A member of the RNA family "mir-124 microRNA precursor family" from Varanus komodoensis, 73 nucleotides long.
A search with the family's covariance model found it, with a score of 74 bits.
The organism belongs to Varanus, within Eukaryota.
Pairs were carried over by alignment from the consensus structure, which was predicted with PFOLD.

[Rfam]
RNA sequence: CUCUCUGCGUGUUCACAGCGGACCUUGAUUUGAGUUCCCAUACAAUUAAGGCACGCGGUGAAUGCUAAGAAAG
Numbered sequence: 001c002u003c004u005c006u007g008c009g010u011g012u013u014c015a016c017a018g019c020g021g022a023c024c025u026u027g028a029u030u031u032g033a034g035u036u037c038c039c040a041u042a043c044a045a046u047u048a049a050g051g052c053a054c055g056c057g058g059u060g061a062a063u064g065c066u067a068a069g070a071a072a073g
Base pairs, nucleotide, nucleotide: 004070005069006068009065010064011063012062013061014060015059016058018056019055020054023051024050025049026048027047028046029045030044